[Rfam]
RNA sequence: AAUCAUACAGAAGGAGCUCUCUCGUCAGUGUCGGUGGGUUUUCAGACUGCGUUCUGCUAUGGCAACCUUUUGGUGGAGUUGUGUUUACGAAGGUAUUGGAUCAUUUAUGGAAUCGUCAGCUCACGAAACAGUCUUCACCUUUGCAAUGGCCGUUGUUGCAGGAGGAUACUUGCGGUUGGUGUUGGAAGCAUCACCGGGACCCAUCUCGAGUUGGAGUCAAAGUUUCGUACUUGUCUGGUGUUGUGAAAGACCCUUCUGCCAAGUUGAAUUUCACGACUCUGGCCGCACUGUUGAGGCUGGGUUGGAUUGUUGGAUCUAGGACAGGCCUUGUUGGGUAGGGUAGUCCUGGCUGUUCUCUCGCCUGAAAAUGGUGUGGAGGACAGCCCCCCGCGGUGAGG
Numbered sequence: 001a002a003u004c005a006u007a008c009a010g011a012a013g014g015a016g017c018u019c020u021c022u023c024g025u026c027a028g029u030g031u032c033g034g035u036g037g038g039u040u041u042u043c044a045g046a047c048u049g050c051g052u053u054c055u056g057c058u059a060u061g062g063c064a065a066c067c068u069u070u071u072g073g074u075g076g077a078g079u080u081g082u083g084u085u086u087a088c089g090a091a092g093g094u095a096u097u098g099g100a101u102c103a104u105u106u107a108u109g110g111a112a113u114c115g116u117c118a119g120c121u122c123a124c125g126a127a128a129c130a131g132u133c134u135u136c137a138c139c140u141u142u143g144c145a146a147u148g149g150c151c152g153u154u155g156u157u158g159c160a161g162g163a164g165g166a167u168a169c170u171u172g173c174g175g176u177u178g179g180u181g182u183u184g185g186a187a188g189c190a191u192c193a194c195c196g197g198g199a200c201c202c203a204u205c206u207c208g209a210g211u212u213g214g215a216g217u218c219a220a221a222g223u224u225u226c227g228u229a230c231u232u233g234u235c236u237g238g239u240g241u242u243g244u245g246a247a248a249g250a251c252c253c254u255u256c257u258g259c260c261a262a263g264u265u266g267a268a269u270u271u272c273a274c275g276a277c278u279c280u281g282g283c284c285g286c287a288c289u290g291u292u293g294a295g296g297c298u299g300g301g302u303u304g305g306a307u308u309g310u311u312g313g314a315u316c317u318a319g320g321a322c323a324g325g326c327c328u329u330g331u332u333g334g335g336u337a338g339g340g341u342a343g344u345c346c347u348g349g350c351u352g353u354u355c356u357c358u359c360g361c362c363u364g365a366a367a368a369u370g371g372u373g374u375g376g377a378g379g380a381c382a383g384c385c386c387c388c389c390g391c392g393g394u395g396a397g398g
Stems, first nucleotide, its partner, number of pairs: 198218003201214003220232004